[Rfam]
RNA sequence: GCGUUCCGACCUGAGACCUCUGGGUCCUGAGCUGUGAUGUUGCUUCUGAGCUGGGAUCUCUGGGGACUUGCUUCGGGGUCA
Numbered sequence: 001g002c003g004u005u006c007c008g009a010c011c012u013g014a015g016a017c018c019u020c021u022g023g024g025u026c027c028u029g030a031g032c033u034g035u036g037a038u039g040u041u042g043c044u045u046c047u048g049a050g051c052u053g054g055g056a057u058c059u060c061u062g063g064g065g066a067c068u069u070g071c072u073u074c075g076g077g078g079u080c081a
Stems, first nucleotide, its partner, number of pairs: 003079006012070004017065004022060003027055002030052004

mir-769 microRNA precursor family: an 81-nucleotide RNA sequence from Rousettus aegyptiacus. Lineage of the source: Eukaryota > Metazoa > Vertebrata > Chiroptera > Rousettus. It scores 82 bits against the family's covariance model. Rfam 15.1 lists 126 matches to the family in 109 species. Pairs were carried over by alignment from the consensus structure, which was predicted with RNAalifold.